[Rfam]
RNA sequence: CAUUCACAUUCAUCAUUCCUUCGUAUAUCCUCGGCGAUACGGGCCGAGAGUCUCUACCGGGAACCGCAAAUUCCCGACUACGACGGAUGUGGGAUCGCUU
Number, nucleotide and partner (000 for none) at each position: 001c000002a000003u000004u000005c000006a000007c000008a000009u000010u000011c000012a000013u000014c000015a000016u000017u000018c086019c085020u000021u083022c082023g081024u080025a079026u000027a000028u000029c000030c048031u047032c046033g045034g044035c043036g000037a000038u000039a000040c000041g000042g000043g035044c034045c033046g032047a031048g030049a000050g000051u000052c000053u000054c000055u000056a000057c000058c076059g075060g074061g073062a072063a071064c000065c000066g000067c000068a000069a000070a000071u063072u062073c061074c060075c059076g058077a000078c000079u025080a024081c023082g022083a021084c000085g019086g018087a000088u000089g000090u000091g000092g000093g000094a000095u000096c000097g000098c000099u000100u000